[Rfam]
RNA sequence: UCUGGCAGUGAUGACACACUUGCCCUCACUGAGAACACAGUUCAAUAAUGAGAAUGUUUCUUAAGUACUCAUUUAUUCUGAGCCAGA
Numbered sequence: 001u002c003u004g005g006c007a008g009u010g011a012u013g014a015c016a017c018a019c020u021u022g023c024c025c026u027c028a029c030u031g032a033g034a035a036c037a038c039a040g041u042u043c044a045a046u047a048a049u050g051a052g053a054a055u056g057u058u059u060c061u062u063a064a065g066u067a068c069u070c071a072u073u074u075a076u077u078c079u080g081a082g083c084c085a086g087a
Stems, first nucleotide, its partner, number of pairs: 001087006
The family of this 87-nucleotide RNA sequence from Alligator sinensis is "Small nucleolar RNA SNORD103/SNORD85". Rfam classes the family as a C/D-box small nucleolar RNA. The match comes from Rfam's covariance-model search (92 bits). Rfam links the family to the GO terms RNA processing and nucleolus. The base pairs follow the family's consensus structure. A reference for the family is Huttenhofer et al. (2001), "RNomics: an experimental approach that identifies 201 candidates for novel, small, non-messenger RNAs in mouse", EMBO J.